[Rfam]
About this RNA:
Rfam assigns this 77-nucleotide sequence from Pseudolycoriella hygida to the family "mir-2796 microRNA precursor family". The base pairs follow the family's consensus structure, which was predicted with RNAalifold. Its family is annotated with RISC complex and miRNA-mediated post-transcriptional gene silencing in the Gene Ontology. The family has 6 seed sequences and 119 matches in Rfam 15.1. Lineage of the source: Eukaryota > Panarthropoda > Altocrustacea > Diptera > Pseudolycoriella. It scores 84 bits against the family's covariance model.
RNA sequence: AAUCUGUGGCAGGGGUUUCUUUCGGCCUCCAGCAGAUUUGAAAUCUGUAGGCCGGCGGAAACUACUUGCUACCGGUU
Numbered sequence: 001a002a003u004c005u006g007u008g009g010c011a012g013g014g015g016u017u018u019c020u021u022u023c024g025g026c027c028u029c030c031a032g033c034a035g036a037u038u039u040g041a042a043a044u045c046u047g048u049a050g051g052c053c054g055g056c057g058g059a060a061a062c063u064a065c066u067u068g069c070u071a072c073c074g075g076u077u
Stems, first nucleotide, its partner, number of pairs: 006072003010068004014063007022055007030047003